[Rfam]
RNA sequence: AUGAUAUUUUCGGGAGAGAAUCUAUUAAAUUAGGUAGCCGAAGAAGCAAGUAUUUAUUUUGCCAAAUAAAUAUGAAACUCUCAGGCAAAAGGACCGAAAAUGGACA
Numbered sequence: 001a002u003g004a005u006a007u008u009u010u011c012g013g014g015a016g017a018g019a020a021u022c023u024a025u026u027a028a029a030u031u032a033g034g035u036a037g038c039c040g041a042a043g044a045a046g047c048a049a050g051u052a053u054u055u056a057u058u059u060u061g062c063c064a065a066a067u068a069a070a071u072a073u074g075a076a077a078c079u080c081u082c083a084g085g086c087a088a089a090a091g092g093a094c095c096g097a098a099a100a101u102g103g104a105c106a
Stems, first nucleotide, its partner, number of pairs: 006101008020035004037086003040082002045079002050073009
This 106-nucleotide RNA from Clostridium sulfidigenes belongs to the Rfam family "Glycine riboswitch aptamer". This family represents the bacterial glycine riboswitch. It scores 66 bits against the family's covariance model.